[Rfam]
RNA sequence: UCAUCAUCACCAUCACCCUGACUAGUCUUUCAGGCGAUGUGUGCUGGGAGACGAAAAGAUCUUCCAGUGGUUUGAACGCAAUAUUAAACCCCCGGAAGAGAUCUUCCGGGGGUUUUUUUAU
Numbered sequence: 001u002c003a004u005c006a007u008c009a010c011c012a013u014c015a016c017c018c019u020g021a022c023u024a025g026u027c028u029u030u031c032a033g034g035c036g037a038u039g040u041g042u043g044c045u046g047g048g049a050g051a052c053g054a055a056a057a058g059a060u061c062u063u064c065c066a067g068u069g070g071u072u073u074g075a076a077c078g079c080a081a082u083a084u085u086a087a088a089c090c091c092c093c094g095g096a097a098g099a100g101a102u103c104u105u106c107c108g109g110g111g112g113u114u115u116u117u118u119u120a121u
Base pairs, nucleotide, nucleotide: 008043009042010041011039012038013037014036017034018033019032020031021030044067045066046065047064048063049062050061051060083118086115087114088113089112090111091110092109093108094107095106096105097104098103
Histidine operon leader: a 121-nucleotide RNA sequence from Tatumella morbirosei. The base pairs follow the family's consensus structure, which is taken from published work. On this family, see Kolter and Yanofsky, Annu Rev Genet 1982: "Attenuation in amino acid biosynthetic operons". Rfam links the family to the GO term histidine biosynthetic process. At least 6 amino acid operons are known to be regulated by attenuation. In each a leader sequence of 150-200 bp is found upstream of the first gene in the operon. It scores 115 bits against the family's covariance model. By type it is a cis-regulatory leader.